[Rfam]
RNA sequence: GCAGCGCCGAUGAUGAGUUUAGAUUGUAGUACUAGGUUGAAUUCUGAUCGAAGAACCUUUUUCUGGGGUUUCCAACGAUGACCACCUGUGUUCCUCUCGAUUUGAGGCGCUGC
Numbered sequence: 001g002c003a004g005c006g007c008c009g010a011u012g013a014u015g016a017g018u019u020u021a022g023a024u025u026g027u028a029g030u031a032c033u034a035g036g037u038u039g040a041a042u043u044c045u046g047a048u049c050g051a052a053g054a055a056c057c058u059u060u061u062u063c064u065g066g067g068g069u070u071u072c073c074a075a076c077g078a079u080g081a082c083c084a085c086c087u088g089u090g091u092u093c094c095u096c097u098c099g100a101u102u103u104g105a106g107g108c109g110c111u112g113c
Base pairs, nucleotide, nucleotide: 002112003111004110005109006108007107008106
RNA: Small nucleolar RNA Z173
Organism: Oryza rufipogon